RNA sequence: AUCGACAGUGAUGAGCCAAUAACAGACCUGUAAUGAUUGCGAACAUGAUCGCAUAUUAUGAACAUCUAAGGGACUGAGUCGAU
Numbered sequence: 001a002u003c004g005a006c007a008g009u010g011a012u013g014a015g016c017c018a019a020u021a022a023c024a025g026a027c028c029u030g031u032a033a034u035g036a037u038u039g040c041g042a043a044c045a046u047g048a049u050c051g052c053a054u055a056u057u058a059u060g061a062a063c064a065u066c067u068a069a070g071g072g073a074c075u076g077a078g079u080c081g082a083u
Stems, first nucleotide, its partner, number of pairs: 002082005
This 83-nucleotide RNA from Artemisia annua belongs to the Rfam family "Small nucleolar RNA SNORD25".
For this family Rfam cites "Identification of 10 novel snoRNA gene clusters from Arabidopsis thaliana" (Qu et al., Nucleic Acids Res, 2001).
Rfam links the family to the GO terms RNA processing and nucleolus.
The family's consensus secondary structure was predicted with PFOLD.
The family's RNA type in Rfam is C/D-box small nucleolar RNA.